[Rfam]
RNA sequence: GAUUGUUCAUGACGUUAAAAUACUAAAUCCCUGGGAUGUGUUUUAGUUGAUUUCAGUC
Numbered sequence: 001g002a003u004u005g006u007u008c009a010u011g012a013c014g015u016u017a018a019a020a021u022a023c024u025a026a027a028u029c030c031c032u033g034g035g036a037u038g039u040g041u042u043u044u045a046g047u048u049g050a051u052u053u054c055a056g057u058c
Base pairs, nucleotide, nucleotide: 005058014047015046016045017044018043019042020041021040022039023038028036029035030034

Selenocysteine insertion sequence 1: a 58-nucleotide sequence from Mytilus coruscus.
The organism belongs to Mytilus, within Eukaryota.
The base pairs follow the family's consensus structure, which is taken from published work.
The incorporation of selenocysteine into a protein sequence is directed by an in-frame UGA codon (usually a stop codon) within the coding region of the mRNA. Selenoprotein mRNAs contain a conserved secondary structure in the 3' UTR that is required for the distinction of UGA stop from UGA selenocysteine.